The record is a 64-nucleotide RNA from Nothobranchius furzeri, which matches "mir-155 microRNA precursor family" in Rfam. Lineage of the source: Eukaryota > Neopterygii > Atherinomorphae > Aplocheiloidei > Nothobranchius.

[Rfam]
RNA sequence: AGGUUAAUGCUAAUCGUGAUAGGGGUUGUUCUAUAACCAACACCUAACAUGUUAGCAUUAGCUU
Numbered sequence: 001a002g003g004u005u006a007a008u009g010c011u012a013a014u015c016g017u018g019a020u021a022g023g024g025g026u027u028g029u030u031c032u033a034u035a036a037c038c039a040a041c042a043c044c045u046a047a048c049a050u051g052u053u054a055g056c057a058u059u060a061g062c063u064u
Stems, first nucleotide, its partner, number of pairs: 004061011020046004025041003